[Rfam]
RNA sequence: CCGACGGACGACCGUCCGCUCGGAUACUGACUCCGGUACCUAGUACGGCCGGGGCAG
Numbered sequence: 001c002c003g004a005c006g007g008a009c010g011a012c013c014g015u016c017c018g019c020u021c022g023g024a025u026a027c028u029g030a031c032u033c034c035g036g037u038a039c040c041u042a043g044u045a046c047g048g049c050c051g052g053g054g055c056a057g
Stems, first nucleotide, its partner, number of pairs: 001023004005018004027057003031054007
A member of the RNA family "L17-Actino-Proteobacteria ribosomal protein leader" from Streptomyces sp. NRRL B-3428, 57 nucleotides long.
The literature on the family includes a 2020 paper in BMC Microbiol by Eckert and Weinberg, "Discovery of 20 novel ribosomal leader candidates in bacteria and archaea".
The sequence is in the family's curated seed alignment.
It is annotated as a cis-regulatory leader.